Shown here is a 122-nucleotide RNA sequence from Aggregatimonas sangjinii, a member of the family "SAM riboswitch aptamer (S box leader)".
[Rfam]
RNA sequence: AAGUUAUCAAGAAAGGUGGAGGGAUUAGACCCUACGAAACCUUAGCAACCCUUUGAUCUUUUGCAAAGAAGGUGCUACAUUCUACUGGUGCUGAGUUCAUUUCAGUAUUUGGCAGAUAACGC
Numbered sequence: 001a002a003g004u005u006a007u008c009a010a011g012a013a014a015g016g017u018g019g020a021g022g023g024a025u026u027a028g029a030c031c032c033u034a035c036g037a038a039a040c041c042u043u044a045g046c047a048a049c050c051c052u053u054u055g056a057u058c059u060u061u062u063g064c065a066a067a068g069a070a071g072g073u074g075c076u077a078c079a080u081u082c083u084a085c086u087g088g089u090g091c092u093g094a095g096u097u098c099a100u101u102u103c104a105g106u107a108u109u110u111g112g113c114a115g116a117u118a119a120c121g122c
Stems, first nucleotide, its partner, number of pairs: 003120006013043005021032003026084004044076004049072002051068004080114001085111001087109009

Lineage of the source: Bacteria > Pseudomonadati > Flavobacteriia > Flavobacteriaceae > Aggregatimonas. A search with the family's covariance model found it, with a score of 68 bits.